[Rfam]
This 124-nucleotide RNA from Cellulomonas sp. PhB143 belongs to the Rfam family "FMN riboswitch aptamer (RFN element)". Pairs were carried over by alignment from the consensus structure, which is taken from published work.

RNA sequence: GCACGUGCUCCGGGGUCGGUGAAAGUCCGAGCCGGCGGUGACAGUCCGCGACCCACGCCUCGGCGUGGUUGACCUGGUGGAACUCCAGGACCGACGGUGAGAGUCCGGAUGGGAGGAGACGUGG
Numbered sequence: 001g002c003a004c005g006u007g008c009u010c011c012g013g014g015g016u017c018g019g020u021g022a023a024a025g026u027c028c029g030a031g032c033c034g035g036c037g038g039u040g041a042c043a044g045u046c047c048g049c050g051a052c053c054c055a056c057g058c059c060u061c062g063g064c065g066u067g068g069u070u071g072a073c074c075u076g077g078u079g080g081a082a083c084u085c086c087a088g089g090a091c092c093g094a095c096g097g098u099g100a101g102a103g104u105c106c107g108g109a110u111g112g113g114a115g116g117a118g119a120c121g122u123g124g
Stems, first nucleotide, its partner, number of pairs: 003122004009116002017029003031104002033093002035049004044091002053068002073089005095107003